[Rfam]
RNA sequence: UGCAAUACCCAUCAAAGGAGUCGUUCCAAUCCAGGGGUUACCUUACCAUAUUCCAAAUUC
Numbered sequence: 001u002g003c004a005a006u007a008c009c010c011a012u013c014a015a016a017g018g019a020g021u022c023g024u025u026c027c028a029a030u031c032c033a034g035g036g037g038u039u040a041c042c043u044u045a046c047c048a049u050a051u052u053c054c055a056a057a058u059u060c
Base pairs, nucleotide, nucleotide: 017044018043020041021040023038024037025036026035027034